[Rfam]
RNA sequence: GGAAAUUCGCCGCCGAAUCGCAGCGUCACGAAGAUCGAGCCGGGGAUCCGAGAUCUCGGGGUGAAUCCGCCGUAGCGCGGUAGGGCAGCUCCCGCCCGAACCCGUCAGCUAACCCGGUAGGCGGUUCCGAGGGGAGUG
Dot-bracket structure: ..........((((...(((...............)))((((((....((......))(((.....((((......))))..((((.......))))...))).........)))))).))))...............
The family of this 138-nucleotide RNA from Cryptosporangium aurantiacum is "c-di-AMP riboswitch aptamer (ydaO/yuaA leader)". The base pairs follow the family's consensus structure. Its family is annotated with cyclic-di-AMP binding and regulation of gene expression in the Gene Ontology. The organism belongs to Cryptosporangium, within Bacteria.